[Rfam]
RNA: terC RNA
RNA sequence: GAUGCGGGCCGGGCCCCUCUGACGAUCUGGAUUUCCCCCCUUGUCCAUGUCGUGAUGUCGGACCGCAUCG
Numbered sequence: 001g002a003u004g005c006g007g008g009c010c011g012g013g014c015c016c017c018u019c020u021g022a023c024g025a026u027c028u029g030g031a032u033u034u035c036c037c038c039c040c041u042u043g044u045c046c047a048u049g050u051c052g053u054g055a056u057g058u059c060g061g062a063c064c065g066c067a068u069c070g
Base pairs, nucleotide, nucleotide: 006064007063009061010060011059012058022053023052024051025050026049028047029046030045031044032043